[Rfam]
RNA sequence: GGCUGACUCUUUGUGGAAGACUAGUGAUUUUGUUGUUGUAAGCCUUAUUGCAUGACAACAAGUCACAGUCUGCCUCACAGUGCCCAGCA
Numbered sequence: 001g002g003c004u005g006a007c008u009c010u011u012u013g014u015g016g017a018a019g020a021c022u023a024g025u026g027a028u029u030u031u032g033u034u035g036u037u038g039u040a041a042g043c044c045u046u047a048u049u050g051c052a053u054g055a056c057a058a059c060a061a062g063u064c065a066c067a068g069u070c071u072g073c074c075u076c077a078c079a080g081u082g083c084c085c086a087g088c089a
Stems, first nucleotide, its partner, number of pairs: 002088004008082001009080002012077002015074002018071005024066007032059006